[Rfam]
RNA sequence: GGAAGAGAAACAUCCCCGGCGGGGUGCCCGGACUUCAAACCCGGAGGAAGGUGCCAUGCAUCUUCGGUAGGUUCGACUCCUGCCUCUUCC
Numbered sequence: 001g002g003a004a005g006a007g008a009a010a011c012a013u014c015c016c017c018g019g020c021g022g023g024g025u026g027c028c029c030g031g032a033c034u035u036c037a038a039a040c041c042c043g044g045a046g047g048a049a050g051g052u053g054c055c056a057u058g059c060a061u062c063u064u065c066g067g068u069a070g071g072u073u074c075g076a077c078u079c080c081u082g083c084c085u086c087u088u089c090c
Base pairs, nucleotide, nucleotide: 001090002089003088004087005086006085007084011026012025013024014023015022016021028044029043030042031041047065048064049063050062051061068082069081070080071079
A member of the RNA family "Selenocysteine transfer RNA" from Steroidobacter agaridevorans, 90 nucleotides long.